Rfam assigns this 97-nucleotide part of an RNA from Halopiger xanaduensis to the family "Archaeal large subunit ribosomal RNA".
[Rfam]
RNA sequence: GACGGGGCAUACAAGGUCCUCUACACAAUGACCGUAGCGCGAGCUACCAGUAAGAAGUAGAGGAAGCCGAUGUUCCGUCGUACGUUUUGAAAAACGA
Numbered sequence: 001g002a003c004g005g006g007g008c009a010u011a012c013a014a015g016g017u018c019c020u021c022u023a024c025a026c027a028a029u030g031a032c033c034g035u036a037g038c039g040c041g042a043g044c045u046a047c048c049a050g051u052a053a054g055a056a057g058u059a060g061a062g063g064a065a066g067c068c069g070a071u072g073u074u075c076c077g078u079c080g081u082a083c084g085u086u087u088u089g090a091a092a093a094a095c096g097a
Stems, first nucleotide, its partner, number of pairs: 001079010015068002019062006029053001034047005083096003

Record summary
The family's consensus secondary structure is taken from published work. The source organism's lineage runs through Archaea, Methanobacteriota, Halobacteria, Natrialbaceae and Halopiger xanaduensis. The sequence is in the family's curated seed alignment.